[Rfam]
RNA sequence: AUAGGAUAUAGAGGUUGCAACCAACAAAAUUAGUCUAAAGGAGCUGACAGGUUAGGAUUUUAGACGAAAGGGGCGGUUGCCGAAAUGAUGAGUGUGGUAAUAUUCAUUGUUGGUGUGUACAUUAAUAGUGUGCGGACUGUCGCGGCAAAAUAGUCGGCUGCGGAGAGCUAUCGACAAU
Numbered sequence: 001a002u003a004g005g006a007u008a009u010a011g012a013g014g015u016u017g018c019a020a021c022c023a024a025c026a027a028a029a030u031u032a033g034u035c036u037a038a039a040g041g042a043g044c045u046g047a048c049a050g051g052u053u054a055g056g057a058u059u060u061u062a063g064a065c066g067a068a069a070g071g072g073g074c075g076g077u078u079g080c081c082g083a084a085a086u087g088a089u090g091a092g093u094g095u096g097g098u099a100a101u102a103u104u105c106a107u108u109g110u111u112g113g114u115g116u117g118u119a120c121a122u123u124a125a126u127a128g129u130g131u132g133c134g135g136a137c138u139g140u141c142g143c144g145g146c147a148a149a150a151u152a153g154u155c156g157g158c159u160g161c162g163g164a165g166a167g168c169u170a171u172c173g174a175c176a177a178u
Base pairs, nucleotide, nucleotide: 008171009170010169011168017080018079019078020077021076022075025072033065034064035063036062037061038060039059040058084111085110086109087108088107089106090105091104092103093102094101095100112138113137114136116134117133118132119131120130121129122128140163141162142161143160144159145158146157
Lysine riboswitch aptamer: a 178-nucleotide RNA sequence from Weissella paramesenteroides. Rfam's curators write: Riboswitches are metabolite binding domains within certain messenger RNAs that serve as precision sensors for their corresponding targets. It scores 101 bits against the family's covariance model. Taxonomically the source falls in Weissella paramesenteroides (Bacteria, Bacilli, Lactobacillales, Weissella).